[Rfam]
RNA sequence: UAGGUUAGAAGUUGAGAAGUAUUAAGUUACGCUGUCCCAACGCGCCAAGCCCUAAAUGGGAAGGUGACAAGAAGAUGUGGGGGUUGGCAGUCCUACCUAACCUA
Dot-bracket structure: ((((((((..((((.................[[[[[.)))).((((................))).....).....(((((....]]]]].)))))))))))))